A member of the RNA family "Clostridiales-1 RNA" from Butyrivibrio fibrisolvens, 155 nucleotides long.

RNA sequence: UGACGUAAGGGUCAAAAGUCAUUUCGAUUCGAGCUUGCUCGAAAUCGAAUAUGAAUUUAUGACCCGCAAAACAUGAGCAAAGUAGCACGUAGUGCGGAUUUGCGAAUGUUUUAGGAUUGUGAGAGUUUCGAAGAAACGGAACAAUCCGUUAGUCA
Numbered sequence: 001u002g003a004c005g006u007a008a009g010g011g012u013c014a015a016a017a018g019u020c021a022u023u024u025c026g027a028u029u030c031g032a033g034c035u036u037g038c039u040c041g042a043a044a045u046c047g048a049a050u051a052u053g054a055a056u057u058u059a060u061g062a063c064c065c066g067c068a069a070a071a072c073a074u075g076a077g078c079a080a081a082g083u084a085g086c087a088c089g090u091a092g093u094g095c096g097g098a099u100u101u102g103c104g105a106a107u108g109u110u111u112u113a114g115g116a117u118u119g120u121g122a123g124a125g126u127u128u129c130g131a132a133g134a135a136a137c138g139g140a141a142c143a144a145u146c147c148g149u150u151a152g153u154c155a
Stems, first nucleotide, its partner, number of pairs: 001155004006151002010064004016057002019054004023049006029042005068112001070110005077103004085095004114147007125137004
The family's consensus secondary structure is taken from published work.